[Rfam]
RNA sequence: UGAUGUGAGGGUGAUCUGGUUGUGACAUCUGUCACCCCAUUGAUCGCCAGGGUUGAUUCGGCUGAUCUGGCUGGCUAGGCAGGUGUCUCCUUCCUCUCUCACUGCUCCAUGUGCUUCCCUCCUGAAGCUGCGUGCUCGGUCGAAGAGGAUGACCUUCACCGAUAGAGAGCUACCAUUCAUCAGUCAAGGGUAUAUGGUAGCUGCACUCCCCUGCUAGAACCUCCAUUUUUUCUGGGCCUACAAGGAAGCUGGGGGUGGGGUGUGUGUGUGUGUGGUGUACUUUUUCCAAGGGCCUGUAGUGACAGGACAAGGG
Numbered sequence: 001u002g003a004u005g006u007g008a009g010g011g012u013g014a015u016c017u018g019g020u021u022g023u024g025a026c027a028u029c030u031g032u033c034a035c036c037c038c039a040u041u042g043a044u045c046g047c048c049a050g051g052g053u054u055g056a057u058u059c060g061g062c063u064g065a066u067c068u069g070g071c072u073g074g075c076u077a078g079g080c081a082g083g084u085g086u087c088u089c090c091u092u093c094c095u096c097u098c099u100c101a102c103u104g105c106u107c108c109a110u111g112u113g114c115u116u117c118c119c120u121c122c123u124g125a126a127g128c129u130g131c132g133u134g135c136u137c138g139g140u141c142g143a144a145g146a147g148g149a150u151g152a153c154c155u156u157c158a159c160c161g162a163u164a165g166a167g168a169g170c171u172a173c174c175a176u177u178c179a180u181c182a183g184u185c186a187a188g189g190g191u192a193u194a195u196g197g198u199a200g201c202u203g204c205a206c207u208c209c210c211c212u213g214c215u216a217g218a219a220c221c222u223c224c225a226u227u228u229u230u231u232c233u234g235g236g237c238c239u240a241c242a243a244g245g246a247a248g249c250u251g252g253g254g255g256u257g258g259g260g261u262g263u264g265u266g267u268g269u270g271u272g273u274g275g276u277g278u279a280c281u282u283u284u285u286c287c288a289a290g291g292g293c294c295u296g297u298a299g300u301g302a303c304a305g306g307a308c309a310a311g312g313g
Base pairs, nucleotide, nucleotide: 002107003106005102006101007100008099009098010097011096013093014092018090019089024087025086026085027084028083029082030081031080032079033078035074036073037070038069039068042067043066044065045064046062047061048060119167120166121165122139123138124137125136127135128134140162141161142160148157149156200261201260202259206255207254209253210252211251213249214248221244222243287313291308293306294305295304296303297302
The record is a 313-nucleotide RNA from Rhynochetos jubatus, which matches "7SK RNA" in Rfam.
A search with the family's covariance model found it, with a score of 220 bits.
The source organism's lineage runs through Eukaryota, Craniata, Sauria, Eurypygiformes and Rhynochetos.
From the family's description: 7SK was discovered as an abundant small nuclear RNA in the mid-70s but a possible function has only recently been suggested.
Pairs were carried over by alignment from the consensus structure, which is taken from published work.
The family has 45 seed sequences and 49,373 matches in Rfam 15.1.
Rfam classes the family as a non-coding RNA gene.